This 52-nucleotide sequence from Cognatiyoonia koreensis belongs to the Rfam family "ffh sRNA". By type it is a small RNA. The match comes from Rfam's covariance-model search (59 bits). Taxonomically the source falls in Cognatiyoonia (Bacteria, Pseudomonadati, Pseudomonadota, Alphaproteobacteria). For this family Rfam cites "Identification of candidate structured RNAs in the marine organism 'Candidatus Pelagibacter ubique'" (Meyer et al., BMC Genomics, 2009).
RNA sequence: UCUGAUAGGGAUCGCCCUCCGUCAGCGCGUCGCGCCCACGGGGGCGCUACUG
Numbered sequence: 001u002c003u004g005a006u007a008g009g010g011a012u013c014g015c016c017c018u019c020c021g022u023c024a025g026c027g028c029g030u031c032g033c034g035c036c037c038a039c040g041g042g043g044g045c046g047c048u049a050c051u052g
Base pairs, nucleotide, nucleotide: 016044017043018042019041020040021039022038025035026034027033028032
Dot-bracket structure: ...............(((((((..((((...))))..)))))))........